[Rfam]
A member of the RNA family "HIV gag stem loop 3 (GSL3)" from Lentivirus humimdef1, 84 nucleotides long. Rfam classes the family as a cis-regulatory element. It is one of the family's seed sequences. This family consists of several HIV gag stem loop 3 (GSL3) sequences. GSL3 is known to direct specific packaging of HIV-1 genomic RNA. Deletion of GSL3 leads to decreases in both viral RNA packaging and dimerisation. Gene Ontology term of the family: viral RNA genome packaging.
RNA sequence: CGCCAGGGGGAAAGAAAAAAUACAGACUGAAACAUCUAGUAUGGGCAAGCAGAGAGAUGGAGAGAUUUGCACUUAACCCUGGCC
Numbered sequence: 001c002g003c004c005a006g007g008g009g010g011a012a013a014g015a016a017a018a019a020a021u022a023c024a025g026a027c028u029g030a031a032a033c034a035u036c037u038a039g040u041a042u043g044g045g046c047a048a049g050c051a052g053a054g055a056g057a058u059g060g061a062g063a064g065a066u067u068u069g070c071a072c073u074u075a076a077c078c079c080u081g082g083c084c
Stems, first nucleotide, its partner, number of pairs: 002083007